Notes:
Rfam assigns this 87-nucleotide sequence from Araneus ventricosus to the family "Vault RNA".
RNA sequence: GCGCAGGCUUGGUCUAGUGGUUACUUCGACUUUUGCGGGUCCCAUAUCUUCUGUGGAAGAUAACCACGGACGCUGUCUUGCGUUUUU
Numbered sequence: 001g002c003g004c005a006g007g008c009u010u011g012g013u014c015u016a017g018u019g020g021u022u023a024c025u026u027c028g029a030c031u032u033u034u035g036c037g038g039g040u041c042c043c044a045u046a047u048c049u050u051c052u053g054u055g056g057a058a059g060a061u062a063a064c065c066a067c068g069g070a071c072g073c074u075g076u077c078u079u080g081c082g083u084u085u086u087u
Stems, first nucleotide, its partner, number of pairs: 002082006012071004017067004026060002
The family's RNA type in Rfam is non-coding RNA gene. Taxonomically the source falls in Araneus (Eukaryota, Metazoa, Ecdysozoa, Arthropoda). This family of RNAs are found as part of the enigmatic vault ribonucleoprotein complex. The complex consists of a major vault protein (MVP), two minor vault proteins (VPARP and TEP1), and several small untranslated RNA molecules.